[Rfam]
RNA sequence: UCUCUCUUCUCAUCAUCAAACCUGUGUCUUGCCAUCCCGUCGCCUCUCCGGGGGCUGUACGGUCGAUAGCUUGACAGUUCGACCGAUCAAUGGAGCCAUCUUUCUCUUCCAUGAUGUCAAUCUUCCGGUCGACAGGUUUUAGACCAAUUCGGGUGUCUCUUUGAAGCCUGAGUUCCACUUCGGUGUCGAGCUCGGUUGAGGGAGGCAUUCUAGGGCGUCAAAUUCCACUUCCCUUCGCUAAUGGCCGUUGGCUUGUGAAGUUAGGGACAAACCUUGACCGGCCUACAUUU
Dot-bracket structure: .................(((((((((((..(..(((((((.(((((....)))).)..))))..)))..)..)))........(((((..(((.(.(...............).).))).......)))))))))))))............(((..........((((.((((((.((......)).)))))))))).........)))....((((((((........(((((..(((...((((...)))).....))).)))))......)))))..))).......